The record is a 107-nucleotide RNA sequence from Aureimonas altamirensis, which matches "SAM-I/IV (S-adenosyl methionine) riboswitch aptamer" in Rfam. Its family is annotated with S-adenosylmethionine metabolic process and regulation of gene expression in the Gene Ontology. A reference for the family is Weinberg et al. (2008), "The aptamer core of SAM-IV riboswitches mimics the ligand-binding site of SAM-I riboswitches", RNA.
RNA sequence: GCCCCGCAUCAAGAGUUGGGCGCGACCCAACGCCAACCUGCCGAUCCGGGCAAGGUGGUGCUUCCGCAAGGAAGGAUGUGGCCUUUCCGGCAACCAAACGGACAAGC
Number, nucleotide and partner (000 for none) at each position: 001g000002c000003c000004c000005c000006g079007c078008a077009u076010c075011a000012a000013g000014a000015g031016u030017u029018g028019g027020g026021c000022g000023c000024g000025a000026c020027c019028c018029a017030a016031c015032g059033c058034c057035a000036a000037c055038c054039u053040g051041c050042c049043g000044a000045u102046c101047c100048g099049g042050g041051c040052a000053a039054g038055g037056u000057g034058g033059u032060g000061c000062u000063u000064c000065c000066g000067c000068a000069a000070g000071g000072a000073a000074g000075g010076a009077u008078g007079u006080g000081g091082c090083c089084u000085u000086u000087c000088c000089g083090g082091c081092a000093a000094c000095c000096a000097a000098a000099c048100g047101g046102a045103c000104a000105a000106g000107c000